[Rfam]
Nucleotides: 126
Stems, first nucleotide, its partner, number of pairs: 028054005034042003087110009
Number, partner (000 for none) and nucleotide at each position: 001000g002000u003000u004000a005000a006000u007000a008000a009000u010000u011000a012000a013000c014000u015000u016000g017000u018000a019000c020000c021000g022000a023000a024000g025000a026000c027000a028054g029053u030052a031051g032050g033000u034042g035041g036040c037000a038000u039000u040036g041035c042034c043000u044000u045000a046000a047000u048000u049000u050032c051031c052030u053029a054028c055000c056000g057000a058000g059000g060000a061000c062000g063000u064000u065000u066000a067000u068000u069000g070000a071000a072000u073000a074000u075000a076000u077000u078000c079000a080000a081000u082000a083000g084000u085000c086000c087110c088109u089108c090107u091106a092105u093104g094103u095102c096000u097000g098000c099000g100000g101000u102095g103094g104093c105092a106091u107090a108089g109088a110087g111000u112000u113000u114000u115000u116000u117000g118000u119000c120000g121000u122000g123000g124000a125000u126000c